[Rfam]
RNA: Guanidine-I riboswitch aptamer
RNA sequence: UUCAAAGUUUUAUAGGGUUCCGCAGUUUUUUAAAAAACCGGUCCGGACCGAGAUAAAACGCACAGUGUAACUGUGUACACGAAGGAUAAAAGCCUGGGAGGU
Numbered sequence: 001u002u003c004a005a006a007g008u009u010u011u012a013u014a015g016g017g018u019u020c021c022g023c024a025g026u027u028u029u030u031u032a033a034a035a036a037a038c039c040g041g042u043c044c045g046g047a048c049c050g051a052g053a054u055a056a057a058a059c060g061c062a063c064a065g066u067g068u069a070a071c072u073g074u075g076u077a078c079a080c081g082a083a084g085g086a087u088a089a090a091a092g093c094c095u096g097g098g099a100g101g102u
Stems, first nucleotide, its partner, number of pairs: 007059006015049002020046002022043001023040001025038004060076006078097001080100001083095003